A member of the RNA family "ZMP/ZTP riboswitch aptamer (pfl RNA motif)" from Actinomyces urogenitalis, 87 nucleotides long.
Lineage of the source: Bacteria > Actinomycetota > Actinomycetales > Actinomyces > Actinomyces urogenitalis.
RNA sequence: CCACCCGGUCGCAACUGGCGAGGGUGGGGUACCACCGGGGAGCGACCACGAUCCACCGAAGGGGCGUCGCCCGCCUGGGCGCCCUAC
Numbered sequence: 001c002c003a004c005c006c007g008g009u010c011g012c013a014a015c016u017g018g019c020g021a022g023g024g025u026g027g028g029g030u031a032c033c034a035c036c037g038g039g040g041a042g043c044g045a046c047c048a049c050g051a052u053c054c055a056c057c058g059a060a061g062g063g064g065c066g067u068c069g070c071c072c073g074c075c076u077g078g079g080c081g082c083c084c085u086a087c
Base pairs, nucleotide, nucleotide: 004050007047008046009045010044011043012042015039016038017075018074019073020072024035025034026033027032064082065081066080067079068078

The base pairs follow the family's consensus structure, which is taken from published work. The match comes from Rfam's covariance-model search (54 bits).